[Rfam]
Record summary: A member of the RNA family "mir-317 microRNA precursor family" from Phyllotreta striolata, 85 nucleotides long. Rfam 15.1 lists 153 matches to the family in 144 species. NCBI's taxonomy places the organism under Eukaryota, Protostomia, Arthropoda, Chrysomeloidea, Phyllotreta. The family's consensus secondary structure was predicted with RNAalifold.
RNA sequence: AUAUUUAGGCACUGGGGUCCACGCUGUGUUUUCUGAAUUGUGAAACAGUGAACACAGCUGGUGGUAUCUCAGUACCUACGUGUCA
Numbered sequence: 001a002u003a004u005u006u007a008g009g010c011a012c013u014g015g016g017g018u019c020c021a022c023g024c025u026g027u028g029u030u031u032u033c034u035g036a037a038u039u040g041u042g043a044a045a046c047a048g049u050g051a052a053c054a055c056a057g058c059u060g061g062u063g064g065u066a067u068c069u070c071a072g073u074a075c076c077u078a079c080g081u082g083u084c085a
Stems, first nucleotide, its partner, number of pairs: 008076002011073002015070001016068002020064001021062002024057003028053001030051002